[Rfam]
RNA sequence: CGGAAUGUACCCUGUAGAUCCGGGCUUUUGUGUACUUGUCAUUCAGAAGCUCGUCUCUACAGGAACGUUACGG
Number, nucleotide and partner (000 for none) at each position: 001c000002g071003g000004a069005a068006u067007g066008u000009a000010c063011c062012c000013u000014g000015u000016a058017g057018a056019u000020c000021c053022g052023g051024g050025c049026u048027u047028u046029u045030g044031u000032g000033u000034a000035c000036u000037u000038g000039u000040c000041a000042u000043u000044c030045a029046g028047a027048a026049g025050c024051u023052c022053g021054u000055c000056u018057c017058u016059a000060c000061a000062g011063g010064a000065a000066c007067g006068u005069u004070a000071c002072g000073g000